[Rfam]
Nucleotides: 153
Base pairs, nucleotide, nucleotide: 011150012149013148014147018041019040020039021038022037042145043144044143045142046141047140052065053064066130067129068128074105075104076103077102108124109123110122111121
Number, partner (000 for none) and nucleotide at each position: 001000g002000g003000g004000c005000a006000g007000u008000c009000a010000u011150c012149g013148c014147c015000g016000a017000g018041u019040c020039c021038c022037c023000c024000a025000c026000g027000g028000c029000g030000c031000g032000a033000g034000c035000c036000a037022g038021g039020g040019g041018a042145g043144c044143c045142g046141g047140g048000g049000a050000c051000c052065c053064a054000c055000c056000g057000c058000a059000g060000u061000c062000c063000c064053u065052g066130g067129g068128g069000u070000g071000a072000a073000u074105c075104g076103g077102a078000c079000g080000g081000c082000c083000u084000u085000c086000c087000c088000g089000c090000a091000c092000g093000g094000g095000g096000a097000g098000g099000g100000a101000g102077u103076c104075c105074g106000u107000a108124g109123g110122a111121g112000a113000c114000c115000u116000u117000c118000c119000u120000g121111c122110u123109c124108c125000g126000a127000a128068c129067c130066c131000g132000u133000c134000a135000g136000c137000u138000a139000a140047c141046c142045c143044g144043g145042u146000a147014g148013g149012c150011g151000a152000g153000a
Overview: c-di-AMP riboswitch aptamer (ydaO/yuaA leader): a 153-nucleotide RNA sequence from Streptomyces sp. SID5785. From the family's description: This family represents a conserved RNA structure found upstream of the ydaO and yuaA genes in Bacillus subtilis and related genes in other bacteria.